[Rfam]
RNA sequence: AAACCAUGUCGAGGGCAUUUCCUCAACAACUCUCGGAACCAGUCCCACGCCUCGUAUAAAGACUCCGAGUCUUGCUGCCUGAAUUGAGUAAUCUCACUUUUGAGUUG
Number, nucleotide and partner (000 for none) at each position: 001a000002a000003a105004c104005c102006a101007u000008g000009u000010c000011g000012a000013g000014g000015g000016c000017a000018u000019u000020u000021c000022c000023u000024c000025a000026a000027c000028a000029a000030c000031u000032c000033u000034c000035g000036g000037a000038a000039c000040c000041a000042g000043u000044c000045c000046c000047a000048c000049g000050c000051c000052u000053c000054g000055u000056a000057u074058a073059a000060a000061g000062a000063c000064u000065c000066c000067g000068a000069g000070u000071c000072u000073u058074g057075c000076u000077g000078c000079c000080u000081g000082a000083a000084u000085u000086g000087a000088g000089u000090a000091a000092u000093c000094u000095c000096a000097c000098u000099u000100u000101u006102g005103a000104g004105u003106u000107g000

Record summary
Plant small nucleolar RNA R71: a 107-nucleotide RNA sequence from Striga hermonthica. NCBI's taxonomy places the organism under Eukaryota, Streptophytina, eudicotyledons, Orobanchaceae, Striga. For this family Rfam cites "Plant snoRNAs: functional evolution and new modes of gene expression" (Brown et al., Trends Plant Sci, 2003). The family's consensus secondary structure was predicted with PFOLD.